Rfam assigns this 77-nucleotide sequence from Crocodylus porosus to the family "Mammalian CPEB3 ribozyme". It scores 42 bits against the family's covariance model. Rfam describes the family as follows. The mammalian CPEB3 ribozyme is a self cleaving RNA located in the second intron of the CPEB3 gene which belongs to a family of genes regulating messenger RNA polyadenylation. This ribozyme is highly conserved and found only in mammals.
RNA sequence: GGUCGCAAUUUCAAGGCCAUGACAGAAGCACUCACAGUGCAGCCUGGUCAGUUUCCAAUGAAUUUGCAAAUUCUGCU
Numbered sequence: 001g002g003u004c005g006c007a008a009u010u011u012c013a014a015g016g017c018c019a020u021g022a023c024a025g026a027a028g029c030a031c032u033c034a035c036a037g038u039g040c041a042g043c044c045u046g047g048u049c050a051g052u053u054u055c056c057a058a059u060g061a062a063u064u065u066g067c068a069a070a071u072u073c074u075g076c077u
Stems, first nucleotide, its partner, number of pairs: 014045004021077001023075005028040003049066003053062003